RNA sequence: CGCACGCACUAGGGGUGUGAAAGCUGAGAUGAGGAUAAGCCUCGAACCCUUUGAACCUGAACUAGAUGAUACUAGCGUAGGAAAGUGUUUCAUUUAUAAU
Numbered sequence: 001c002g003c004a005c006g007c008a009c010u011a012g013g014g015g016u017g018u019g020a021a022a023g024c025u026g027a028g029a030u031g032a033g034g035a036u037a038a039g040c041c042u043c044g045a046a047c048c049c050u051u052u053g054a055a056c057c058u059g060a061a062c063u064a065g066a067u068g069a070u071a072c073u074a075g076c077g078u079a080g081g082a083a084a085g086u087g088u089u090u091c092a093u094u095u096a097u098a099a100u
Stems, first nucleotide, its partner, number of pairs: 006088005011050004016044001017024002031043004056081004062075004

Notes: Rfam assigns this 100-nucleotide RNA from Staphylococcus sp. HGB0015 to the family "TPP riboswitch aptamer (THI element)". The literature on the family includes a 2002 paper in Nature by Winkler et al., "Thiamine derivatives bind messenger RNAs directly to regulate bacterial gene expression".